[Rfam]
The family of this 247-nucleotide RNA from Anaerobacillus isosaccharinicus is "T-box leader". Rfam describes the family as follows. Uncharged tRNA acts as the effector for transcription antitermination of genes in the T-box leader family. T-boxes are found upstream of many aminoacyl-tRNA synthetase genes and some amino acid biosynthetic genes usually in Gram-positive bacteria. The anticodon of a specific tRNA base pairs to a specifier sequence within the T-box motif, and the NCCA acceptor tail of the tRNA base pairs to a conserved bulge in the T-box antiterminator hairpin. A search with the family's covariance model found it, with a score of 124 bits. The family's consensus secondary structure is taken from published work. The source organism's lineage runs through Bacteria, Bacillati, Bacillota, Caryophanales and Anaerobacillus.
RNA sequence: UUAAACGCGAUGAAGAGAAGAGUAAAUAACGUCAAUUCUUUACAGAGAGCUCCGGAUGCUGAAAAGGAGUAAGAAUGUCUUAUUGAAACAAGCCUCUGAGCAGCACAUCGGAACGUAUCGUGAUGGUGUGACAGAUACUCCUGUUAUAGAGCUAGGGUAUAAGCUGAUUGCCGUACCUGAAAAGGUUAAUAUGGUGACAUAUUAAUAAACUGGGGUGGUACCACGAACUUUUAAUCUCGUCCCCAAG
Numbered sequence: 001u002u003a004a005a006c007g008c009g010a011u012g013a014a015g016a017g018a019a020g021a022g023u024a025a026a027u028a029a030c031g032u033c034a035a036u037u038c039u040u041u042a043c044a045g046a047g048a049g050c051u052c053c054g055g056a057u058g059c060u061g062a063a064a065a066g067g068a069g070u071a072a073g074a075a076u077g078u079c080u081u082a083u084u085g086a087a088a089c090a091a092g093c094c095u096c097u098g099a100g101c102a103g104c105a106c107a108u109c110g111g112a113a114c115g116u117a118u119c120g121u122g123a124u125g126g127u128g129u130g131a132c133a134g135a136u137a138c139u140c141c142u143g144u145u146a147u148a149g150a151g152c153u154a155g156g157g158u159a160u161a162a163g164c165u166g167a168u169u170g171c172c173g174u175a176c177c178u179g180a181a182a183a184g185g186u187u188a189a190u191a192u193g194g195u196g197a198c199a200u201a202u203u204a205a206u207a208a209a210c211u212g213g214g215g216u217g218g219u220a221c222c223a224c225g226a227a228c229u230u231u232u233a234a235u236c237u238c239g240u241c242c243c244c245a246a247g
Stems, first nucleotide, its partner, number of pairs: 007101002015096003025084005038073003049070005104130007132143003185206007212244004223240004